Source information
This 92-nucleotide RNA from Ellagibacter isourolithinifaciens belongs to the Rfam family "SAM riboswitch aptamer (S box leader)". Lineage of the source: Bacteria > Coriobacteriia > Eggerthellales > Eggerthellaceae > Ellagibacter. It scores 50 bits against the family's covariance model. The family's consensus secondary structure is taken from published work.

RNA sequence: CGUUUAUCAAGAGUCGGGGGAGAGAGUUGGCUCUGCGAUCCCGACACCAACCUGGCGUUGUGCCAAGGUGGUCCGGCCGACAACGAUGAAGG
Number, nucleotide and partner (000 for none) at each position: 001c092002g000003u090004u089005u088006a087007u086008c085009a000010a000011g000012a000013g045014u000015c043016g042017g041018g040019g000020g000021a000022g033023a032024g031025a000026g000027u080028u079029g078030g077031c024032u023033c022034u000035g000036c000037g000038a000039u000040c018041c017042c016043g015044a000045c013046a072047c071048c070049a069050a000051c068052c067053u065054g064055g063056c062057g000058u000059u000060g000061u000062g056063c055064c054065a053066a000067g052068g051069u049070g048071g047072u046073c000074c000075g000076g084077c030078c029079g028080a027081c000082a000083a000084c076085g008086a007087u006088g005089a004090a003091g000092g001